Rfam assigns this 202-nucleotide RNA from Paenibacillus sp. J31TS4 to the family "glmS glucosamine-6-phosphate activated ribozyme aptamer". A search with the family's covariance model found it, with a score of 98 bits. The base pairs follow the family's consensus structure, which is taken from published work.

RNA sequence: UAGUUUCAUGAAGCGCCAGAACUUGGGCGAGCCACGGAGAAUGUCUGGUUUCCGAACGGAACCAGACAUGAGCCCCCAAGUUGACGAGGUGAAGGUGUUCGAAACAUUCGGCGGGGACCUUCCGGCAGCCAUCAACUGCCGUUAAGUGGAUCGACAAACCUCCUGGGUGACCGGGGGCACAAAACGAUCUUCUUGAUUCCAU
Number, nucleotide and partner (000 for none) at each position: 001u000002a000003g000004u000005u000006u000007c000008a000009u000010g000011a000012a000013g000014c000015g000016c000017c000018a000019g000020a082021a081022c080023u079024u078025g077026g076027g075028c000029g073030a000031g000032c000033c000034a000035c000036g000037g000038a000039g000040a000041a000042u000043g000044u000045c000046u000047g000048g000049u000050u000051u000052c000053c000054g000055a000056a000057c000058g000059g000060a000061a000062c000063c000064a000065g000066a000067c000068a000069u000070g000071a000072g000073c029074c000075c027076c026077c025078a024079a023080g022081u021082u020083g000084a000085c000086g000087a000088g000089g000090u000091g122092a121093a120094g119095g118096u000097g000098u000099u111100c110101g109102a108103a000104a000105c000106a000107u000108u102109c101110g100111g099112c000113g000114g000115g000116g000117a000118c095119c094120u093121u092122c091123c141124g140125g139126c138127a137128g136129c000130c000131a000132u000133c000134a000135a000136c128137u127138g126139c125140c124141g123142u000143u000144a000145a000146g192147u000148g190149g189150a188151u187152c186153g000154a000155c000156a000157a000158a000159c000160c177161u176162c175163c174164u173165g172166g171167g000168u000169g000170a000171c166172c165173g164174g163175g162176g161177g160178c000179a000180c000181a000182a000183a000184a000185c000186g152187a151188u150189c149190u148191u000192c146193u000194u000195g000196a000197u000198u000199c000200c000201a000202u000